[Rfam]
RNA: SAM riboswitch aptamer (S box leader)
Organism: Veillonella criceti
RNA sequence: GGUUCAUCAAGAGUUGACUGAGGGACUGGCCCGAUGAAGUCGCGGCAACCAUCCAAGUUUGGAACGGUGCCAAUUCCAACGAAGUGAUACUUCGACAGAUGAAGA
Numbered sequence: 001g002g003u004u005c006a007u008c009a010a011g012a013g014u015u016g017a018c019u020g021a022g023g024g025a026c027u028g029g030c031c032c033g034a035u036g037a038a039g040u041c042g043c044g045g046c047a048a049c050c051a052u053c054c055a056a057g058u059u060u061g062g063a064a065c066g067g068u069g070c071c072a073a074u075u076c077c078a079a080c081g082a083a084g085u086g087a088u089a090c091u092u093c094g095a096c097a098g099a100u101g102a103a104g105a
Stems, first nucleotide, its partner, number of pairs: 003103006013043001015042004022032003027078003044071004049067002052063004075097001080094006